Notes
Rfam assigns this 75-nucleotide RNA sequence from Vitis rotundifolia to the family "Small nucleolar RNA Z155". The organism belongs to Vitis, within Eukaryota. Rfam links the family to the GO terms RNA processing and nucleolus. The literature on the family includes a 2003 paper in Nucleic Acids Res by Chen et al., "The high diversity of snoRNAs in plants: identification and comparative study of 120 snoRNA genes from Oryza sativa". The family has 8 seed sequences and 429 matches in Rfam 15.1.

[Rfam]
RNA sequence: CAUUGAAAUGAUGAUAUCGAAUGCGGAAACCAUGAUGUCGACUUAAUAAAUCAGACUACAAUUAUCUGAUCGAUG
Numbered sequence: 001c002a003u004u005g006a007a008a009u010g011a012u013g014a015u016a017u018c019g020a021a022u023g024c025g026g027a028a029a030c031c032a033u034g035a036u037g038u039c040g041a042c043u044u045a046a047u048a049a050a051u052c053a054g055a056c057u058a059c060a061a062u063u064a065u066c067u068g069a070u071c072g073a074u075g
Stems, first nucleotide, its partner, number of pairs: 001075006
Dot-bracket structure: ((((((...............................................................))))))